[Rfam]
RNA sequence: UUCUUAUCAAGAGAGACGGAGGGGUAUGGCCCGAAGAAGUCUCGGCAGCAGGUUCAUCCGGACACUGUGCCAAAUCCAUCAGGCAAAGGCCUGGCAGAUAAGAA
Numbered sequence: 001u002u003c004u005u006a007u008c009a010a011g012a013g014a015g016a017c018g019g020a021g022g023g024g025u026a027u028g029g030c031c032c033g034a035a036g037a038a039g040u041c042u043c044g045g046c047a048g049c050a051g052g053u054u055c056a057u058c059c060g061g062a063c064a065c066u067g068u069g070c071c072a073a074a075u076c077c078a079u080c081a082g083g084c085a086a087a088g089g090c091c092u093g094g095c096a097g098a099u100a101a102g103a104a
Base pairs, nucleotide, nucleotide: 001104002103003102004101005100006099007098008097013043014042015041016040017039021032022031023030026079027078028077029076044071045070046069047068049067050066051063053061054060075096080093081092082091083090084089
Record summary
The record is a 104-nucleotide RNA from Bacillus sp. NRRL B-14911, which matches "SAM riboswitch aptamer (S box leader)" in Rfam. The family's consensus secondary structure is taken from published work.